[Rfam]
RNA sequence: GUAAUGUUUCUUGCUCAAAUGAGUAUUCCAACAACAGUAGACUUUGAAACAAGAGCAUAUAUAUGUUUUUGAAUGUUUAUGAUGUUGAUGGCAUCUACUGUUUCUGAGAUGCUCGUUCGAGCAAGAAAUAUUAG
Number, nucleotide and partner (000 for none) at each position: 001g000002u000003a000004a131005u130006g129007u128008u127009u000010c125011u124012u123013g122014c121015u120016c119017a000018a117019a116020u115021g114022a113023g112024u111025a110026u109027u108028c000029c106030a105031a000032c000033a000034a000035c000036a000037g000038u000039a000040g000041a000042c000043u000044u000045u000046g000047a000048a000049a000050c000051a000052a000053g000054a000055g000056c000057a000058u000059a000060u000061a000062u000063a000064u000065g000066u000067u000068u000069u000070u000071g000072a000073a000074u000075g000076u000077u000078u000079a000080u000081g000082a000083u000084g000085u000086u000087g000088a000089u000090g000091g000092c000093a000094u000095c000096u000097a000098c000099u000100g000101u000102u000103u000104c000105u030106g029107a000108g027109a026110u025111g024112c023113u022114c021115g020116u019117u018118c000119g016120a015121g014122c013123a012124a011125g010126a000127a008128a007129u006130a005131u004132u000133a000134g000
Source information: This 134-nucleotide sequence from Salix purpurea belongs to the Rfam family "MIR828 microRNA precursor family". It scores 88 bits against the family's covariance model. Lineage of the source: Eukaryota > Streptophyta > Mesangiospermae > Salicaceae > Salix. The base pairs follow the family's consensus structure, which was predicted with RNAalifold. The literature on the family includes a 2010 paper in Plant Cell by Ma et al., "Arabidopsis lyrata small RNAs: transient MIRNA and small interfering RNA loci within the Arabidopsis genus".